[Rfam]
RNA sequence: GGGUUCAGGAACUUAAAGGUUUCUGGAGGAUUUUGAUGGUCGGGCCGCCAUCU
Numbered sequence: 001g002g003g004u005u006c007a008g009g010a011a012c013u014u015a016a017a018g019g020u021u022u023c024u025g026g027a028g029g030a031u032u033u034u035g036a037u038g039g040u041c042g043g044g045c046c047g048c049c050a051u052c053u
Stems, first nucleotide, its partner, number of pairs: 005026008035052006
Rfam assigns this 53-nucleotide RNA sequence to the family "nhaA-I RNA". Rfam classes the family as a riboswitch. Rfam describes the family as follows. Acidobacteria, Alphaproteobacteria, Betaproteobacteria and Gammaproteobacteria, Verrucomicrobia, cand. division NC10. Rfam's curators put it in the seed alignment.